[Rfam]
RNA sequence: CUCUGCUCUUGCGUUAGGUAUUUGAUGGAUACGUCUGUCAUUUCAAAUCAAGGGAAUAAAGGAGUCUAAUUCCAUGCUGAAAAAGCAAAAAAAUAAAUGAAAAUGGAAGCUGAUAGUAGCUGUAUUGCGAACUCCGUUAAACAUUU
Numbered sequence: 001c002u003c004u005g006c007u008c009u010u011g012c013g014u015u016a017g018g019u020a021u022u023u024g025a026u027g028g029a030u031a032c033g034u035c036u037g038u039c040a041u042u043u044c045a046a047a048u049c050a051a052g053g054g055a056a057u058a059a060a061g062g063a064g065u066c067u068a069a070u071u072c073c074a075u076g077c078u079g080a081a082a083a084a085g086c087a088a089a090a091a092a093a094u095a096a097a098u099g100a101a102a103a104u105g106g107a108a109g110c111u112g113a114u115a116g117u118a119g120c121u122g123u124a125u126u127g128c129g130a131a132c133u134c135c136g137u138u139a140a141a142c143a144u145u146u
Stems, first nucleotide, its partner, number of pairs: 004056001006054004013049001020043001023040006076086003101146005108138003112134002119128002
Rfam assigns this 146-nucleotide sequence to the family "RT-14 RNA".
The base pairs follow the family's consensus structure, which is taken from published work.
Rfam's curators put it in the seed alignment.